[Rfam]
Nucleotides: 132
Stems, first nucleotide, its partner, number of pairs: 002059002005056004030041004072124006086110003090106006
Number, partner (000 for none) and nucleotide at each position: 001000a002059g003058u004000g005056u006055u007054c008053u009000u010000c011000c012000a013000c014000u015000g016000a017000a018000c019000a020000c021000u022000c023000a024000a025000c026000c027000c028000c029000u030041g031040u032039g033038u034000u035000c036000u037000u038033a039032u040031a041030c042000u043000g044000u045000a046000u047000a048000g049000a050000a051000a052000g053008a054007g055006g056005a057000a058003g059002c060000a061000a062000a063000g064000u065000a066000a067000g068000c069000c070000u071000a072124c073123c074122c075121c076120g077119u078000g079000u080000a081000c082000a083000c084000c085000u086110c087109a088108g089000c090106c091105c092104a093103g094102g095101c096000u097000c098000c099000g100000u101095g102094c103093c104092u105091g106090g107000u108088c109087u110086g111000u112000a113000u114000u115000g116000u117000g118000a119077a120076u121075g122074g123073g124072g125000a126000g127000a128000c129000a130000a131000g132000g
The family of this 132-nucleotide RNA from Sciurus vulgaris is "Small nucleolar RNA SNORA51". Rfam links the family to the GO terms nucleolus and RNA processing. Pairs were carried over by alignment from the consensus structure, which was predicted with PFOLD. It is annotated as an H/ACA-box small nucleolar RNA. The family has 9 seed sequences and 2,121 matches in Rfam 15.1. The match comes from Rfam's covariance-model search (96 bits).